[Rfam]
RNA sequence: AUUGCACAUUAAAUCCAUAGCAGAAGCGCUCAUGGUGUAGCCUGUCAGAUUCCAACAAAUCUGUGAAUUCUGCU
Dot-bracket structure: ..............[...((((((((((.......))).].....((((((......))))))....)))))))
RNA: Mammalian CPEB3 ribozyme
Organism: Alligator sinensis